[Rfam]
RNA sequence: GGGGCGCCGAGGGGACGGGGCUGGCUCGGAGACGGCCAGCCUCUGGAACCUCCCGCACCGCCGCGGGGAGCCUCCAGCGGGCCGCCGAAAGGCGGGGGUAAAAACCAGCUGGAGGCGCGGCCCCCAAGCAGGGCCUGUGAGGCCCGCGCGAGGCCCGGGUAGGGGGAUAGACACAUACCCCAACAGAAGCGGGGGUACCCGGCGCCCC
Numbered sequence: 001g002g003g004g005c006g007c008c009g010a011g012g013g014g015a016c017g018g019g020g021c022u023g024g025c026u027c028g029g030a031g032a033c034g035g036c037c038a039g040c041c042u043c044u045g046g047a048a049c050c051u052c053c054c055g056c057a058c059c060g061c062c063g064c065g066g067g068g069a070g071c072c073u074c075c076a077g078c079g080g081g082c083c084g085c086c087g088a089a090a091g092g093c094g095g096g097g098g099u100a101a102a103a104a105c106c107a108g109c110u111g112g113a114g115g116c117g118c119g120g121c122c123c124c125c126a127a128g129c130a131g132g133g134c135c136u137g138u139g140a141g142g143c144c145c146g147c148g149c150g151a152g153g154c155c156c157g158g159g160u161a162g163g164g165g166g167a168u169a170g171a172c173a174c175a176u177a178c179c180c181c182a183a184c185a186g187a188a189g190c191g192g193g194g195g196u197a198c199c200c201g202g203c204g205c206c207c208c
Stems, first nucleotide, its partner, number of pairs: 001208009011179002017043005023037003027034002058120004070116009082095005096106002123164003131156005141149001
RNaseP truncated form: a 208-nucleotide RNA from Pyrobaculum ferrireducens.
Rfam's curators write: Pyrobaculum and Caldivirga RNase P RNAs are reported as the smallest naturally occurring form of RNase P. They function as trans-acting precursor tRNA-processing ribozymes. This variant of RNase P, have a loss of the specificity domain, which suggests altered substrate specificity.
The pairing is the family consensus, mapped onto this sequence.
Rfam's curators put it in the seed alignment.